[Rfam]
RNA sequence: GGAGACGUGCCAGAGCGGCCGAAUGGACUUCACUGCUAAUGAAGGGUCCGCUGAAAGGUGGACCGGGGGUUCAAAUCCCCCCGUCUCCG
Numbered sequence: 001g002g003a004g005a006c007g008u009g010c011c012a013g014a015g016c017g018g019c020c021g022a023a024u025g026g027a028c029u030u031c032a033c034u035g036c037u038a039a040u041g042a043a044g045g046g047u048c049c050g051c052u053g054a055a056a057g058g059u060g061g062a063c064c065g066g067g068g069g070u071u072c073a074a075a076u077c078c079c080c081c082c083g084u085c086u087c088c089g
Base pairs, nucleotide, nucleotide: 001088002087003086004085005084006083007082010026011025012024028044029043030042031041032040065081066080067079068078069077
This 89-nucleotide RNA from Galactobacter caseinivorans belongs to the Rfam family "tRNA". Rfam classes the family as a transfer RNA. Transfer RNA (tRNA) molecules are approximately 80 nucleotides in length. The source organism's lineage runs through Bacteria, Bacillati, Actinomycetes, Micrococcales and Galactobacter.